This 125-nucleotide RNA from Natranaerobius thermophilus belongs to the Rfam family "FMN riboswitch aptamer (RFN element)". Gene Ontology term of the family: FMN binding. The organism belongs to Natranaerobius thermophilus, within Bacteria. A search with the family's covariance model found it, with a score of 123 bits.
[Rfam]
RNA sequence: UGAUACCUUCAGGGCAGGGUGAGAUUCCCGACCGGCGGUAGAGCCCGCGAGCCUCUUGAUGUUAAGAGGUUGAUUCGGUGAAAUUCCGAAGCCGACAGUAAAAGUCUGGAUGGGAGAAGGUUUAA
Numbered sequence: 001u002g003a004u005a006c007c008u009u010c011a012g013g014g015c016a017g018g019g020u021g022a023g024a025u026u027c028c029c030g031a032c033c034g035g036c037g038g039u040a041g042a043g044c045c046c047g048c049g050a051g052c053c054u055c056u057u058g059a060u061g062u063u064a065a066g067a068g069g070u071u072g073a074u075u076c077g078g079u080g081a082a083a084u085u086c087c088g089a090a091g092c093c094g095a096c097a098g099u100a101a102a103a104g105u106c107u108g109g110a111u112g113g114g115a116g117a118a119g120g121u122u123u124a125a
Stems, first nucleotide, its partner, number of pairs: 003123001005121006017029003031105002033094002035048004043092002051070003074090005096108003